The record is a 120-nucleotide RNA from Buceros rhinoceros, which matches "Small nucleolar RNA SNORA32" in Rfam. It scores 62 bits against the family's covariance model. Pairs were carried over by alignment from the consensus structure, which was predicted with RNAfold. It is annotated as an H/ACA-box small nucleolar RNA. Its family is annotated with nucleolus and RNA processing in the Gene Ontology. NCBI's taxonomy places the organism under Eukaryota, Gnathostomata, Sauria, Aves, Buceros rhinoceros. Rfam's curators write: ACA32 is a member of the H/ACA class of snoRNA that guide the sites of modification of uridines to pseudouridines.
[Rfam]
RNA sequence: UGGUCAUUACCAAGGCUGCUAGGAUGUUGUUCCUGGUGAGUUGUGGAGAUGACCGUAAAACAAGUCCAUCAGACUCUUGAAUUGCUGCAUGAUGCAGCACUAAGUCUGCUGGGAAUAAAG
Numbered sequence: 001u002g003g004u005c006a007u008u009a010c011c012a013a014g015g016c017u018g019c020u021a022g023g024a025u026g027u028u029g030u031u032c033c034u035g036g037u038g039a040g041u042u043g044u045g046g047a048g049a050u051g052a053c054c055g056u057a058a059a060a061c062a063a064g065u066c067c068a069u070c071a072g073a074c075u076c077u078u079g080a081a082u083u084g085c086u087g088c089a090u091g092a093u094g095c096a097g098c099a100c101u102a103a104g105u106c107u108g109c110u111g112g113g114a115a116u117a118a119a120g
Stems, first nucleotide, its partner, number of pairs: 003053005010046003026041003065113004072106004083099003